Record summary: A member of the RNA family "mir-450 microRNA precursor family" from Mus musculus, 78 nucleotides long. A reference for the family is Chiang et al. (2010), "Mammalian microRNAs: experimental evaluation of novel and previously annotated genes", Genes Dev. Rfam links the family to the GO terms RISC complex and miRNA-mediated post-transcriptional gene silencing. Rfam's curators put it in the seed alignment. Lineage of the source: Eukaryota > Sarcopterygii > Mammalia > Muroidea > Mus. The family has 36 seed sequences and 374 matches in Rfam 15.1.
RNA sequence: ACUGAGCUGUUUUUGCGAUGUGUUCCUAAUAUGUGCUAUAAUUAUAUUGGGAACAUUUUGCAUAAAUAGCUUUGUGUC
Numbered sequence: 001a002c003u004g005a006g007c008u009g010u011u012u013u014u015g016c017g018a019u020g021u022g023u024u025c026c027u028a029a030u031a032u033g034u035g036c037u038a039u040a041a042u043u044a045u046a047u048u049g050g051g052a053a054c055a056u057u058u059u060g061c062a063u064a065a066a067u068a069g070c071u072u073u074g075u076g077u078c
Stems, first nucleotide, its partner, number of pairs: 004072007014062005020056014